RNA sequence: GUAGCAGAAGAUCCUCGGCAGUUAACUGCAGCCAGAUUUCUAAAACUUCGACAGUUAACUGCCGAAGGACAU
Numbered sequence: 001g002u003a004g005c006a007g008a009a010g011a012u013c014c015u016c017g018g019c020a021g022u023u024a025a026c027u028g029c030a031g032c033c034a035g036a037u038u039u040c041u042a043a044a045a046c047u048u049c050g051a052c053a054g055u056u057a058a059c060u061g062c063c064g065a066a067g068g069a070c071a072u
Stems, first nucleotide, its partner, number of pairs: 012068002015065014
RNA: MIR2629 microRNA precursor family
Organism: Medicago truncatula